[Rfam]
This 73-nucleotide RNA sequence from Scleropages formosus belongs to the Rfam family "Small nucleolar RNA SNORD19". By type it is a C/D-box small nucleolar RNA. The base pairs follow the family's consensus structure. It scores 44 bits against the family's covariance model. For this family Rfam cites "RNomics: an experimental approach that identifies 201 candidates for novel, small, non-messenger RNAs in mouse" (Huttenhofer et al., EMBO J, 2001). The source organism's lineage runs through Eukaryota, Gnathostomata, Teleostomi, Osteoglossocephala and Scleropages.
RNA sequence: GAGAAAAGAGGAAAACAGAAUAAGUCUUGAUUUACUGUGAAGACUUUAAUCCAACUCUGAUCUCGUAGCUAUC
Number, nucleotide and partner (000 for none) at each position: 001g064002a063003g062004a061005a000006a000007a000008g000009a000010g000011g000012a000013a000014a000015a000016c000017a000018g000019a000020a000021u000022a000023a000024g000025u000026c000027u000028u000029g000030a000031u000032u000033u000034a000035c000036u000037g000038u000039g000040a000041a000042g000043a000044c000045u000046u000047u000048a000049a000050u000051c000052c000053a000054a000055c000056u000057c000058u000059g000060a000061u004062c003063u002064c001065g000066u000067a000068g000069c000070u000071a000072u000073c000